[Rfam]
RNA: SAM riboswitch aptamer (S box leader)
Organism: Oceanobacillus halophilus
Nucleotides: 114
Base pairs, nucleotide, nucleotide: 001114002113003112004111005110006109007108008107013043014042015041016040021032022031023030027086028085029084044079045078046077047076049075050074051070052069053068054067055066056065083106088103089102090101091100092099093098
Number, partner (000 for none) and nucleotide at each position: 001114c002113u003112c004111u005110u006109a007108u008107c009000a010000a011000g012000a013043g014042c015041g016040g017000g018000g019000g020000a021032g022031g023030g024000a025000c026000a027086a028085g029084g030023c031022c032021c033000u034000g035000a036000g037000a038000a039000a040016c041015c042014g043013c044079g045078g046077c047076a048000a049075c050074c051070u052069u053068c054067a055066a056065a057000c058000a059000u060000a061000c062000u063000u064000g065056u066055u067054u068053g069052a070051a071000a072000a073000a074050g075049g076047u077046g078045c079044u080000a081000a082000u083106u084029c085028c086027u087000g088103c089102a090101a091100a092099g093098c094000a095000u096000u097000g098093g099092c100091u101090u102089u103088g104000g105000a106083a107008g108007a109006u110005a111004a112003g113002a114001g